Shown here is a 183-nucleotide RNA from Clostridium sp. USBA 49, a member of the family "Lysine riboswitch aptamer". Rfam's curators write: Riboswitches are metabolite binding domains within certain messenger RNAs that serve as precision sensors for their corresponding targets. It scores 107 bits against the family's covariance model. Rfam links the family to the GO term lysine biosynthetic process.
[Rfam]
RNA sequence: AGAUGAGGUAGAGGCGCGGUAUUUAACAGUCUUUAGAGGAGCAUGAGAAAGCUAUGAUGCUAAGGAGAAGGAAAUAUCGCCGAAGUGUGUAAUAUUCUCAGUAUUACAUGCUGGGCCUGCAGUUAAGAGCUGUAGGACUGUCUUAAUAAACAUCCCGGUUUAUUAAGUUGUGCUAUCUCAUUU
Dot-bracket structure: .....((((((....(((((((((......((((((.(...................).))))))......)))))))))...((((((((((((.....))))))))))))((.((((((((.....)))))))).))..(((((((((........))))))))).....)))))).....
Numbered sequence: 001a002g003a004u005g006a007g008g009u010a011g012a013g014g015c016g017c018g019g020u021a022u023u024u025a026a027c028a029g030u031c032u033u034u035a036g037a038g039g040a041g042c043a044u045g046a047g048a049a050a051g052c053u054a055u056g057a058u059g060c061u062a063a064g065g066a067g068a069a070g071g072a073a074a075u076a077u078c079g080c081c082g083a084a085g086u087g088u089g090u091a092a093u094a095u096u097c098u099c100a101g102u103a104u105u106a107c108a109u110g111c112u113g114g115g116c117c118u119g120c121a122g123u124u125a126a127g128a129g130c131u132g133u134a135g136g137a138c139u140g141u142c143u144u145a146a147u148a149a150a151c152a153u154c155c156c157g158g159u160u161u162a163u164u165a166a167g168u169u170g171u172g173c174u175a176u177c178u179c180a181u182u183u
Stems, first nucleotide, its partner, number of pairs: 006178006016080009031065006038058001084112012113139002116136008142167009